[Rfam]
RNA sequence: UGCAAUGAUGGUGUAAUUUGCGUCUUACCUGGUAUUUGGCGACAGUUGCCUACUGUCACAAAGCUAAUACUGUGGGGUGACGACACUUCGAGUCUGAGCG
Dot-bracket structure: (((.................((((.....(((((....(((((((.......))))).....))...)))))......))))...............)))
Numbered sequence: 001u002g003c004a005a006u007g008a009u010g011g012u013g014u015a016a017u018u019u020g021c022g023u024c025u026u027a028c029c030u031g032g033u034a035u036u037u038g039g040c041g042a043c044a045g046u047u048g049c050c051u052a053c054u055g056u057c058a059c060a061a062a063g064c065u066a067a068u069a070c071u072g073u074g075g076g077g078u079g080a081c082g083a084c085a086c087u088u089c090g091a092g093u094c095u096g097a098g099c100g
Stems, first nucleotide, its partner, number of pairs: 001100003021082004030072005039064002041057005
The family of this 100-nucleotide RNA from Leptobrachium leishanense is "Small nucleolar RNA SNORD16". The family's RNA type in Rfam is C/D-box small nucleolar RNA. Its family is annotated with nucleolus and RNA processing in the Gene Ontology. For this family Rfam cites "A novel small nucleolar RNA (U16) is encoded inside a ribosomal protein intron and originates by processing of the pre-mRNA" (Fragapane et al., EMBO J, 1993). A search with the family's covariance model found it, with a score of 86 bits.